[Rfam]
RNA sequence: GGUCAUGAGUCCCAGUAACAAGCCCCGGCUUACUGGGCGGCAACCCUCCGCCGCGGUGGGGUGCCCCGGGUGAAGACCUGGCCCUCGACGCACCAAGCGUUGAGGACAAGCGCGGGUU
Numbered sequence: 001g002g003u004c005a006u007g008a009g010u011c012c013c014a015g016u017a018a019c020a021a022g023c024c025c026c027g028g029c030u031u032a033c034u035g036g037g038c039g040g041c042a043a044c045c046c047u048c049c050g051c052c053g054c055g056g057u058g059g060g061g062u063g064c065c066c067c068g069g070g071u072g073a074a075g076a077c078c079u080g081g082c083c084c085u086c087g088a089c090g091c092a093c094c095a096a097g098c099g100u101u102g103a104g105g106a107c108a109a110g111c112g113c114g115g116g117u118u
Stems, first nucleotide, its partner, number of pairs: 001078004009038001011037006021030002039065003044061003048056002081107001083105008
The record is a 118-nucleotide RNA sequence from Glutamicibacter sp. BW77, which matches "SAM (S-adenosyl methionine) riboswitch aptamer" in Rfam. NCBI's taxonomy places the organism under Bacteria, Actinomycetota, Micrococcales, Micrococcaceae, Glutamicibacter. Rfam describes the family as follows. SAM-IV is a mRNA element that regulates gene expression via direct sensing of S-adenosylmethionine (SAM or AdoMet). SAM-IV riboswitches share conserved nucleotide positions with the previously described SAM-I riboswitches sequence analysis and molecular recognition experiments suggest that SAM-I and SAM-IV riboswitches share similar ligand binding sites, but have different scaffolds. A search with the family's covariance model found it, with a score of 112 bits.